[Rfam]
Annotation: This 85-nucleotide sequence from Pilibacter termitis belongs to the Rfam family "SAM riboswitch aptamer (S box leader)". The match comes from Rfam's covariance-model search (62 bits). The source organism's lineage runs through Bacteria, Bacillota, Lactobacillales, Enterococcaceae and Pilibacter. The base pairs follow the family's consensus structure, which is taken from published work.
RNA sequence: UAUUUAUCAAGAGUACGCGAGAGACUGGCUCCAUGACCGUACAGCAACCUGCAUUUGUAAGGUGCUAAACCCAGAGAGAUAAAGG
Number, nucleotide and partner (000 for none) at each position: 001u085002a000003u083004u082005u081006a080007u079008c078009a000010a000011g000012a000013g042014u041015a040016c039017g038018c000019g000020a000021g031022a030023g029024a000025c074026u073027g072028g071029c023030u022031c021032c000033a000034u000035g000036a000037c000038c017039g016040u015041a014042c013043a066044g065045c064046a063047a000048c062049c061050u059051g058052c057053a000054u000055u000056u000057g052058u051059a050060a000061g049062g048063u046064g045065c044066u043067a000068a000069a000070c000071c028072c027073a026074g025075a000076g000077a000078g008079a007080u006081a005082a004083a003084g000085g001